[Rfam]
RNA sequence: AUCAAUCUUCGGGGCAGGGUGAAAGUCCCUACCGGCGGUGAUAAGCAUAUUGCUUUAAGCCCGCGAGCCUUUUUUUUCGGGCAGGAUUCGGUGAAAUUCCGAAGCCGACAGUAUAGUCUGGAUGGGAGAAGAUGGAG
Numbered sequence: 001a002u003c004a005a006u007c008u009u010c011g012g013g014g015c016a017g018g019g020u021g022a023a024a025g026u027c028c029c030u031a032c033c034g035g036c037g038g039u040g041a042u043a044a045g046c047a048u049a050u051u052g053c054u055u056u057a058a059g060c061c062c063g064c065g066a067g068c069c070u071u072u073u074u075u076u077u078c079g080g081g082c083a084g085g086a087u088u089c090g091g092u093g094a095a096a097u098u099c100c101g102a103a104g105c106c107g108a109c110a111g112u113a114u115a116g117u118c119u120g121g122a123u124g125g126g127a128g129a130a131g132a133u134g135g136a137g
Stems, first nucleotide, its partner, number of pairs: 003135001005133006017029003031117002033107002035064004059105002067082003087103005109120003